[Rfam]
RNA sequence: CCUGGGGGAGCAUUUUAUCCACGUCAGCACAAAGCGCAUCCUAAAGAAAGCGUUUUGUACUGACAUGGACAAAAUGCUCCCCCUGGG
Numbered sequence: 001c002c003u004g005g006g007g008g009a010g011c012a013u014u015u016u017a018u019c020c021a022c023g024u025c026a027g028c029a030c031a032a033a034g035c036g037c038a039u040c041c042u043a044a045a046g047a048a049a050g051c052g053u054u055u056u057g058u059a060c061u062g063a064c065a066u067g068g069a070c071a072a073a074a075u076g077c078u079c080c081c082c083c084u085g086g087g
Stems, first nucleotide, its partner, number of pairs: 001086002004083013018069004023064005029058009041046001